[Rfam]
RNA sequence: GGAUCGGGCCUUUCAGGCAUCCUCUCCUAAGACUUCGGGUCGAUCUUUCGGGAUCGGCCCGUUUUUUUAUACCUU
Numbered sequence: 001g002g003a004u005c006g007g008g009c010c011u012u013u014c015a016g017g018c019a020u021c022c023u024c025u026c027c028u029a030a031g032a033c034u035u036c037g038g039g040u041c042g043a044u045c046u047u048u049c050g051g052g053a054u055c056g057g058c059c060c061g062u063u064u065u066u067u068u069a070u071a072c073c074u075u
Stems, first nucleotide, its partner, number of pairs: 008018004037060009
Background:
Shown here is a 75-nucleotide RNA sequence from Sphingomonas oleivorans, a member of the family "Makes More Granules Regulator RNA (mmgR)". The pairing is the family consensus, mapped onto this sequence. The literature on the family includes a 2005 paper in Genome Biol by Corbino et al., "Evidence for a second class of S-adenosylmethionine riboswitches and other regulatory RNA motifs in alpha-proteobacteria". Taxonomically the source falls in Sphingomonas (Bacteria, Alphaproteobacteria, Sphingomonadales, Sphingomonadaceae).